Bacterial large signal recognition particle RNA: a 213-nucleotide RNA from Fusibacter sp. A1.
Lineage of the source: Bacteria > Bacillati > Eubacteriales > Fusibacteraceae > Fusibacter.
Its Rfam clan is "SRP clan".
Pairs were carried over by alignment from the consensus structure, which is taken from published work.
[Rfam]
Nucleotides: 213
Stems, first nucleotide, its partner, number of pairs: 001042002005021004010016002026039005048211003055208001058206005064200010075190002077187006083180009092168006098159002101157002104154002108148004116141003124133003
Number, partner (000 for none) and nucleotide at each position: 001042c002041g003000a004000a005021u006020g007019c008018a009000a010016a011015g012000a013000g014000a015011u016010u017000a018008u019007g020006c021005a022000a023000u024000c025000u026039u027038u028037u029036u030035u031000u032000a033000a034000a035030a036029g037028a038027a039026a040000a041002c042001g043000g044000u045000a046000a047000u048211c049210u050209u051000u052000a053000u054000a055208a056000a057000a058206u059205u060204c061203g062202a063000a064200a065199u066198a067197g068196u069195g070194u071193c072192u073191a074000u075190u076189c077187c078186a079185g080184g081183a082182c083180g084179u085178u086177u087176u088175g089174g090173g091172u092168c093167u094166u095165g096164c097163g098159c099158a100000a101157u102156g103000g104154u105153c106000a107000u108148c109147u110146g111145u112000g113000a114000a115000u116141c117140c118139g119000c120000c121000a122000g123000g124133u125132c126131c127000u128000g129000a130000c131126g132125g133124a134000a135000g136000c137000a138000a139118c140117g141116g142000u143000a144000a145111g146110c147109g148108g149000u150000a151000a152000u153105g154104a155000a156102c157101a158099u159098g160000u161000g162000c163097c164096g165095c166094g167093a168092g169000g170000g171000u172091g173090c174089c175088u176087g177086a178085g179084a180083u181000u182082g183081u184080c185079c186078u187077g188000g189076g190075a191073u192072a193071g194070a195069c196068a197067c198066u199065g200064u201000u202062u203061c204060g205059a206058a207000g208055u209050a210049a211048g212000u213000g